[Rfam]
RNA sequence: GAGCCGGGAGGAUUGCUUUGCGCUAAAUCGUGAUGGAUGGGUUCUAUCCACCCUUGUCUGAUUCUUAAAGACGACAAAAUGCGCAUCUGAGCUC
Numbered sequence: 001g002a003g004c005c006g007g008g009a010g011g012a013u014u015g016c017u018u019u020g021c022g023c024u025a026a027a028u029c030g031u032g033a034u035g036g037a038u039g040g041g042u043u044c045u046a047u048c049c050a051c052c053c054u055u056g057u058c059u060g061a062u063u064c065u066u067a068a069a070g071a072c073g074a075c076a077a078a079a080u081g082c083g084c085a086u087c088u089g090a091g092c093u094c
Stems, first nucleotide, its partner, number of pairs: 001094004

Overview:
small nucleolar RNA snoR114: a 94-nucleotide RNA from Vitis vinifera. Its family is annotated with nucleolus and RNA processing in the Gene Ontology. A search with the family's covariance model found it, with a score of 56 bits. Taxonomically the source falls in Vitis (Eukaryota, Embryophyta, Euphyllophyta, Spermatophyta). It is annotated as a C/D-box small nucleolar RNA.